A member of the RNA family "c-di-AMP riboswitch aptamer (ydaO/yuaA leader)" from Branchiibius sp. NY16-3462-2, 198 nucleotides long.
RNA sequence: UCAGCCGGCAUGCCGAAUCCUGCCGCUGGCAGAUGAGCACAGCGUUUCCGCAUGGCAGGAGCGGGGGACCCACCUUCUGAUCGUCGUCAUGGCGAUCUCGGGGCGAAGACGACUGACGCAACGGGGAGCGUGCAGUAGUCCGGGGACCUCUUGACCCGAGCCCGACAGCUCACCUCGCAGGCAUUCAUGAGAGGUACU
Number, nucleotide and partner (000 for none) at each position: 001u000002c000003a000004g000005c000006c000007g000008g000009c000010a000011u183012g182013c181014c180015g000016a000017a000018u060019c059020c058021u057022g056023c055024c054025g053026c000027u000028g000029g000030c000031a000032g000033a000034u000035g000036a000037g000038c000039a000040c000041a000042g000043c000044g000045u000046u000047u000048c000049c000050g000051c000052a000053u025054g024055g023056c022057a021058g020059g019060a018061g178062c177063g176064g175065g174066g173067g000068a000069c000070c000071c100072a000073c000074c000075u000076u000077c000078u000079g000080a000081u000082c000083g000084u000085c000086g000087u000088c000089a000090u000091g000092g000093c000094g000095a000096u000097c000098u000099c000100g071101g163102g162103g161104c000105g000106a000107a000108g000109a139110c138111g000112a136113c135114u134115g133116a000117c000118g000119c000120a000121a000122c000123g000124g000125g000126g000127a000128g000129c000130g000131u000132g000133c115134a114135g113136u112137a000138g110139u109140c000141c000142g157143g156144g155145g000146a000147c000148c000149u000150c000151u000152u000153g000154a000155c144156c143157c142158g000159a000160g000161c103162c102163c101164g000165a000166c000167a000168g000169c000170u000171c000172a000173c066174c065175u064176c063177g062178c061179a000180g014181g013182c012183a011184u000185u000186c000187a000188u000189g000190a000191g000192a000193g000194g000195u000196a000197c000198u000
Rfam describes the family as follows. This family represents a conserved RNA structure found upstream of the ydaO and yuaA genes in Bacillus subtilis and related genes in other bacteria. The ydaO/yuaA element is thought to act as a genetic 'off' switch for the ydaO and yuaA genes in its native state. It is believed that the element may be triggered during osmotic shock leading to activation of ydaO, a predicted amino acid transporter gene, and members of the yuaA-yubG operon which code for KtrA and KtrB K+ transporters. Lineage of the source: Bacteria > Actinomycetota > Micrococcales > Dermacoccaceae > Branchiibius.